RNA sequence: CUUUGUAUUUUUCCACAGCUUUCUUGAACUGCAUCAUCUUUGCAUGAGGCCACAGACUUGGCAUGGCAUUUGUUGCGGUUCAAUAAAGCUGUGGGAAGAUACAAACA
Numbered sequence: 001c002u003u004u005g006u007a008u009u010u011u012u013c014c015a016c017a018g019c020u021u022u023c024u025u026g027a028a029c030u031g032c033a034u035c036a037u038c039u040u041u042g043c044a045u046g047a048g049g050c051c052a053c054a055g056a057c058u059u060g061g062c063a064u065g066g067c068a069u070u071u072g073u074u075g076c077g078g079u080u081c082a083a084u085a086a087a088g089c090u091g092u093g094g095g096a097a098g099a100u101a102c103a104a105a106c107a
Stems, first nucleotide, its partner, number of pairs: 003104005013094003017090006024083004029078005